[Rfam]
RNA sequence: GUUUUACGCGAGCCGAAACUAACGUGCGGGGGAGAUUCAUGGAAAUCAGUACAGGCAGUCUGCUGUGCUGAAUCCUCGGGGUGAAUCGCAGAUCAGCUGGCCUUGACCAGUUGGAUUAUGCGUAGGGUGACUCCUUAACCGAAUCCGACAACUAACCUCGUAGGCGUAUACACAGGAGGA
Numbered sequence: 001g002u003u004u005u006a007c008g009c010g011a012g013c014c015g016a017a018a019c020u021a022a023c024g025u026g027c028g029g030g031g032g033a034g035a036u037u038c039a040u041g042g043a044a045a046u047c048a049g050u051a052c053a054g055g056c057a058g059u060c061u062g063c064u065g066u067g068c069u070g071a072a073u074c075c076u077c078g079g080g081g082u083g084a085a086u087c088g089c090a091g092a093u094c095a096g097c098u099g100g101c102c103u104u105g106a107c108c109a110g111u112u113g114g115a116u117u118a119u120g121c122g123u124a125g126g127g128u129g130a131c132u133c134c135u136u137a138a139c140c141g142a143a144u145c146c147g148a149c150a151a152c153u154a155a156c157c158u159c160g161u162a163g164g165c166g167u168a169u170a171c172a173c174a175g176g177a178g179g180a
Stems, first nucleotide, its partner, number of pairs: 012165003018025002026161006036078001079146003087122004125140002128137001
Shown here is a 180-nucleotide RNA sequence from Paenibacillus cellulosilyticus, a member of the family "c-di-AMP riboswitch aptamer (ydaO/yuaA leader)". The organism belongs to Paenibacillus, within Bacteria. Rfam's curators write: This family represents a conserved RNA structure found upstream of the ydaO and yuaA genes in Bacillus subtilis and related genes in other bacteria. The ydaO/yuaA element is thought to act as a genetic 'off' switch for the ydaO and yuaA genes in its native state. It is believed that the element may be triggered during osmotic shock leading to activation of ydaO, a predicted amino acid transporter gene, and members of the yuaA-yubG operon which code for KtrA and KtrB K+ transporters.